[Rfam]
RNA sequence: AACAGAGUAGGUAAAAAGCGUAAAGUGUUAAGGGAUGGGAAGUUGCCUUUAAACGAAAGACUAUGUCUGCGGUUUUUUACUGCGUCCGCUGUU
Numbered sequence: 001a002a003c004a005g006a007g008u009a010g011g012u013a014a015a016a017a018g019c020g021u022a023a024a025g026u027g028u029u030a031a032g033g034g035a036u037g038g039g040a041a042g043u044u045g046c047c048u049u050u051a052a053a054c055g056a057a058a059g060a061c062u063a064u065g066u067c068u069g070c071g072g073u074u075u076u077u078u079a080c081u082g083c084g085u086c087c088g089c090u091g092u093u
Stems, first nucleotide, its partner, number of pairs: 001093005010081009019071003025054002028052007038087003042083001058068004
RNA: THF (Tetrahydrofolate) riboswitch aptamer
Organism: Sporanaerobacter sp. PP17-6a